[Rfam]
RNA sequence: GCUCUGUUGUCGAUGGGCAACAGGCCGACCAUUUAAGUGGUCAGCCGAUCACACCUGCUUCGGCAAACACAUUGCAGGGGUCGGCCAUAAGGGGGAGUAGCAACAUGAUUGUGAAAGCCCUAGGCCGC
Number, nucleotide and partner (000 for none) at each position: 001g025002c024003u000004c023005u022006g021007u020008u019009g018010u017011c016012g000013a000014u000015g000016g011017g010018c009019a008020a007021c006022a005023g004024g002025c001026c000027g000028a000029c000030c000031a000032u000033u000034u000035a000036a000037g000038u000039g000040g000041u000042c000043a000044g000045c000046c000047g000048a000049u000050c000051a000052c000053a000054c000055c000056u065057g064058c063059u000060u000061c000062g000063g058064c057065a056066a000067a000068c000069a000070c000071a000072u000073u000074g000075c000076a000077g000078g000079g000080g128081u000082c127083g126084g125085c124086c123087a000088u000089a000090a000091g120092g119093g118094g000095g000096a000097g000098u000099a000100g112101c111102a110103a109104c000105a000106u000107g000108a000109u103110u102111g101112u100113g000114a000115a000116a000117g000118c093119c092120c091121u000122a000123g086124g085125c084126c083127g082128c080
Overview:
This 128-nucleotide RNA sequence belongs to the Rfam family "Bacteriophage Diversity-Generating Retroelement RNA". A reference for the family is Handa et al. (2025), "RNA control of reverse transcription in a diversity-generating retroelement", Nature. It is one of the family's seed sequences. Rfam classes the family as a small RNA.